[Rfam]
RNA sequence: UUGGAGAAUUUGAAGACUUCAACUUGCAAACUUGAAGAUUUUGAAGAAUUUAACUUGUAUACUUGAAGAAUUUGAAGACUUCAUCU
Number, nucleotide and partner (000 for none) at each position: 001u000002u083003g082004g081005a080006g079007a000008a000009u076010u075011u074012g073013a072014a071015g000016a000017c068018u067019u066020c065021a064022a000023c000024u000025u059026g058027c057028a056029a000030a000031c000032u053033u052034g051035a050036a049037g000038a000039u000040u000041u000042u000043g000044a000045a000046g000047a000048a000049u036050u035051u034052a033053a032054c000055u000056u028057g027058u026059a025060u000061a000062c000063u000064u021065g020066a019067a018068g017069a000070a000071u014072u013073u012074g011075a010076a009077g000078a000079c006080u005081u004082c003083a002084u000085c000086u000
This 86-nucleotide RNA sequence from Solanum tuberosum belongs to the Rfam family "MIR8024 microRNA precursor family". Taxonomically the source falls in Solanum (Eukaryota, Viridiplantae, Solanales, Solanoideae). The base pairs follow the family's consensus structure, which was predicted with RNAalifold. Rfam 15.1 lists 661 matches to the family in 8 species. The match comes from Rfam's covariance-model search (83 bits).